[Rfam]
RNA: Glycine riboswitch aptamer
Organism: Paenibacillus sp. oral taxon 786
RNA sequence: AUGAGGAUGAUGGGAGAGUCCGCGGGCUGAUCCGAAAAGGGACGCCAGCUUAGCGGCACCGAAGGAGCAAGGGCCGGUCCUGCAGCCGGCAGCCGAAUCUCUCAGGUACAAGGACCAUGAUCGGACG
Numbered sequence: 001a002u003g004a005g006g007a008u009g010a011u012g013g014g015a016g017a018g019u020c021c022g023c024g025g026g027c028u029g030a031u032c033c034g035a036a037a038a039g040g041g042a043c044g045c046c047a048g049c050u051u052a053g054c055g056g057c058a059c060c061g062a063a064g065g066a067g068c069a070a071g072g073g074c075c076g077g078u079c080c081u082g083c084a085g086c087c088g089g090c091a092g093c094c095g096a097a098u099c100u101c102u103c104a105g106g107u108a109c110a111a112g113g114a115c116c117a118u119g120a121u122c123g124g125a126c127g
Base pairs, nucleotide, nucleotide: 006122007121008120010118011117012116013115020056021055022054023053058107059106060105061103062102065101066100067099071094072093